[Rfam]
RNA: RNase MRP
Organism: Malus domestica
RNA sequence: AUGCCACCGGACGAAGCGAUCGGGCCACAAUUCUGAGAAAGGAACGAGGCCCAGGAAAGUCCCCGGGCCCAUGAUCUGCAGAGAUGCAGCCCUGGAAACAGGUAGCCUCCGAGUGCUUGGAGUCUUAUCGACUUGUUCGAUGGGCUGAGACACGCGUGGAGCUUUAUAGGCUUCAUGCCCGGAUAUCCUUGGCCGAUGGUAUAGUUAUUCGCUUGGUCAUUUGCUGGACCUAACCGAACGGGGCUUACGUUCUAGUGGCA
Numbered sequence: 001a002u003g004c005c006a007c008c009g010g011a012c013g014a015a016g017c018g019a020u021c022g023g024g025c026c027a028c029a030a031u032u033c034u035g036a037g038a039a040a041g042g043a044a045c046g047a048g049g050c051c052c053a054g055g056a057a058a059g060u061c062c063c064c065g066g067g068c069c070c071a072u073g074a075u076c077u078g079c080a081g082a083g084a085u086g087c088a089g090c091c092c093u094g095g096a097a098a099c100a101g102g103u104a105g106c107c108u109c110c111g112a113g114u115g116c117u118u119g120g121a122g123u124c125u126u127a128u129c130g131a132c133u134u135g136u137u138c139g140a141u142g143g144g145c146u147g148a149g150a151c152a153c154g155c156g157u158g159g160a161g162c163u164u165u166a167u168a169g170g171c172u173u174c175a176u177g178c179c180c181g182g183a184u185a186u187c188c189u190u191g192g193c194c195g196a197u198g199g200u201a202u203a204g205u206u207a208u209u210c211g212c213u214u215g216g217u218c219a220u221u222u223g224c225u226g227g228a229c230c231u232a233a234c235c236g237a238a239c240g241g242g243g244c245u246u247a248c249g250u251u252c253u254a255g256u257g258g259c260a
Stems, first nucleotide, its partner, number of pairs: 002260006009253003014214006022052004057246003061243004077088004091102004110181001115178002118175003132170003142164004152157001215230004